[Rfam]
RNA sequence: UUAAGACAAAGGCAAAGCCGUCGAAAGGCGGUGACGCAAAGCCACGGGUCUAACGCACGCACCGCGUGCCAUGACCGCCGGGUUGCCGCU
Numbered sequence: 001u002u003a004a005g006a007c008a009a010a011g012g013c014a015a016a017g018c019c020g021u022c023g024a025a026a027g028g029c030g031g032u033g034a035c036g037c038a039a040a041g042c043c044a045c046g047g048g049u050c051u052a053a054c055g056c057a058c059g060c061a062c063c064g065c066g067u068g069c070c071a072u073g074a075c076c077g078c079c080g081g082g083u084u085g086c087c088g089c090u
Stems, first nucleotide, its partner, number of pairs: 012037002017032006040084004045080003048075003055069006
c-di-GMP-I riboswitch aptamer: a 90-nucleotide RNA from Salinisphaera hydrothermalis.
The source organism's lineage runs through Bacteria, Pseudomonadota, Gammaproteobacteria, Salinisphaera and Salinisphaera hydrothermalis.
GEMM was predicted in a large-scale screen for bacterial structured RNA regulatory elements.
It scores 82 bits against the family's covariance model.